[Rfam]
RNA sequence: CGGGUCCUUCCGGAGGGCCCCCCCCAAUCCUGUGGUGCUCAAUUCAGAGGGUUGGGCGGAGGCUUUCCUGAAAGGCUU
Dot-bracket structure: .....(.(((..(((((((.(((((((((((.(.(.........).)))))))))).)).)))))))..))).)....
Numbered sequence: 001c002g003g004g005u006c007c008u009u010c011c012g013g014a015g016g017g018c019c020c021c022c023c024c025c026a027a028u029c030c031u032g033u034g035g036u037g038c039u040c041a042a043u044u045c046a047g048a049g050g051g052u053u054g055g056g057c058g059g060a061g062g063c064u065u066u067c068c069u070g071a072a073a074g075g076c077u078u
Stems, first nucleotide, its partner, number of pairs: 006074001008072003013067007021059002023056009033047001035045001

This 78-nucleotide RNA sequence from Crocuta crocuta belongs to the Rfam family "mir-296 microRNA precursor family". NCBI's taxonomy places the organism under Eukaryota, Dipnotetrapodomorpha, Boreoeutheria, Laurasiatheria, Crocuta. The match comes from Rfam's covariance-model search (82 bits).